[Rfam]
The record is a 56-nucleotide sequence from Leptolyngbyaceae cyanobacterium JSC-12, which matches "Nitrogen stress-induced RNA 1" in Rfam. Taxonomically the source falls in Leptolyngbyaceae (Bacteria, Bacillati, Cyanophyceae, Leptolyngbyales). Rfam classes the family as a small RNA.

RNA sequence: UGGUAGAUGCACCCUGAUUUGGCACCCCAACUCAGCAAUGGGUUGGGGUUUUCUCA
Dot-bracket structure: .(((......)))...........((((((((((....))))))))))........